[Rfam]
RNA sequence: UGGGUAGUAUUCCAAAAGUCAAAUACAGUCAUUUCCCAAUGAUUGAUUGACAUGAAACUACAUCAGGAGAAUUUUAUUUUAUUUUUGAAAGGCGGCUCAUAUCCAAUAUGGAAUGGGACCGGAAG
Numbered sequence: 001u002g003g004g005u006a007g008u009a010u011u012c013c014a015a016a017a018g019u020c021a022a023a024u025a026c027a028g029u030c031a032u033u034u035c036c037c038a039a040u041g042a043u044u045g046a047u048u049g050a051c052a053u054g055a056a057a058c059u060a061c062a063u064c065a066g067g068a069g070a071a072u073u074u075u076a077u078u079u080u081a082u083u084u085u086u087g088a089a090a091g092g093c094g095g096c097u098c099a100u101a102u103c104c105a106a107u108a109u110g111g112a113a114u115g116g117g118a119c120c121g122g123a124a125g
Stems, first nucleotide, its partner, number of pairs: 001065003004061005010056002093121003096117005102112003
RNA: pan motif
Organism: Ruminiclostridium hungatei